[Rfam]
The record is a 74-nucleotide RNA sequence from Trypanosoma theileri, which matches "Trypanosomatid snoRNA TB11Cs4H3" in Rfam. Its family is annotated with RNA processing and nucleolus in the Gene Ontology. The base pairs follow the family's consensus structure, which was predicted with WAR.
RNA sequence: AGCGCAACAUCCCUUGGGCCGGUGGCAAACGUUCGGUGCCACGCGAGUUGCCCCUGUCCGGUUGUGCGAGAUAC
Numbered sequence: 001a002g003c004g005c006a007a008c009a010u011c012c013c014u015u016g017g018g019c020c021g022g023u024g025g026c027a028a029a030c031g032u033u034c035g036g037u038g039c040c041a042c043g044c045g046a047g048u049u050g051c052c053c054c055u056g057u058c059c060g061g062u063u064g065u066g067c068g069a070g071a072u073a074c
Base pairs, nucleotide, nucleotide: 002067003066004065005064006063007062008061016053017052018051019050

Taxonomically the source falls in Trypanosoma (Eukaryota, Discoba, Euglenozoa, Kinetoplastea). The family has 3 seed sequences and 134 matches in Rfam 15.1. The match comes from Rfam's covariance-model search (77 bits).